[Rfam]
RNA sequence: UUUAGUGGCAGCGUCUUUCUGGCACAUUUGUUAAGUGUUCAGAUGGGCCUGACUCUGCCACGUACAUUAUGCAGGAGCCGGCAAAGUCUUAGAGACAGAGAGUCUCUCUUGGGAGUUUCCUGAUGACAGAUCGGCUCCCAUAAGU
Numbered sequence: 001u002u003u004a005g006u007g008g009c010a011g012c013g014u015c016u017u018u019c020u021g022g023c024a025c026a027u028u029u030g031u032u033a034a035g036u037g038u039u040c041a042g043a044u045g046g047g048c049c050u051g052a053c054u055c056u057g058c059c060a061c062g063u064a065c066a067u068u069a070u071g072c073a074g075g076a077g078c079c080g081g082c083a084a085a086g087u088c089u090u091a092g093a094g095a096c097a098g099a100g101a102g103u104c105u106c107u108c109u110u111g112g113g114a115g116u117u118u119c120c121u122g123a124u125g126a127c128a129g130a131u132c133g134g135c136u137c138c139c140a141u142a143a144g145u
Stems, first nucleotide, its partner, number of pairs: 005061007021049003025045006074138006080089002105130003109126001